Shown here is a 217-nucleotide sequence from Streptomyces aurantiacus, a member of the family "Actinobacteria sRNA Ms_IGR-5". A search with the family's covariance model found it, with a score of 69 bits.
RNA sequence: ACGCCGAAAGGAGGUGAUCGGGUACAUGUCUGAAACCCGGACCAGCGAGGUGGCUGCGGGCUAGCGGCCCGUCACCACAUUCAGUGCGGUGCCGGACCAGCGCGUGAUACGAGCGUGCAGCCGGCCCAAUCUCAAGCAGUCACCCGACCCGCGUGCUCGCCGGUAAGUCCGGCCGGCUCCCUCCUCGGAGGGGACCAGAGUGCGCGGGUCGUCUGCG
Numbered sequence: 001a002c003g004c005c006g007a008a009a010g011g012a013g014g015u016g017a018u019c020g021g022g023u024a025c026a027u028g029u030c031u032g033a034a035a036c037c038c039g040g041a042c043c044a045g046c047g048a049g050g051u052g053g054c055u056g057c058g059g060g061c062u063a064g065c066g067g068c069c070c071g072u073c074a075c076c077a078c079a080u081u082c083a084g085u086g087c088g089g090u091g092c093c094g095g096a097c098c099a100g101c102g103c104g105u106g107a108u109a110c111g112a113g114c115g116u117g118c119a120g121c122c123g124g125c126c127c128a129a130u131c132u133c134a135a136g137c138a139g140u141c142a143c144c145c146g147a148c149c150c151g152c153g154u155g156c157u158c159g160c161c162g163g164u165a166a167g168u169c170c171g172g173c174c175g176g177c178u179c180c181c182u183c184c185u186c187g188g189a190g191g192g193g194a195c196c197a198g199a200g201u202g203c204g205c206g207g208g209u210c211g212u213c214u215g216c217g
Stems, first nucleotide, its partner, number of pairs: 014057003018053001059126004064121002067118002070115001072112001145211013159177006
Record summary: NCBI's taxonomy places the organism under Bacteria, Bacillati, Kitasatosporales, Streptomycetaceae, Streptomyces.